[Rfam]
RNA sequence: UUGCCCUCUCGGAGCUUGGCGGUGCUUCGGGGAGUCAACACAGGGGGAUAGAGCAGGUCACCCUCACUAAAACCCAGUGCGGAGCCCUUCCCUCCGCCCUGCAUCCUGUCGUGAGGCACAAAU
Numbered sequence: 001u002u003g004c005c006c007u008c009u010c011g012g013a014g015c016u017u018g019g020c021g022g023u024g025c026u027u028c029g030g031g032g033a034g035u036c037a038a039c040a041c042a043g044g045g046g047g048a049u050a051g052a053g054c055a056g057g058u059c060a061c062c063c064u065c066a067c068u069a070a071a072a073c074c075c076a077g078u079g080c081g082g083a084g085c086c087c088u089u090c091c092c093u094c095c096g097c098c099c100u101g102c103a104u105c106c107u108g109u110c111g112u113g114a115g116g117c118a119c120a121a122a123u
Base pairs, nucleotide, nucleotide: 002050003049005047006046007045008044009043014039016037020031057117063115064114065113066112067111075101076100077099079097080096082094083093084092
RNA: Small nucleolar RNA SNORA26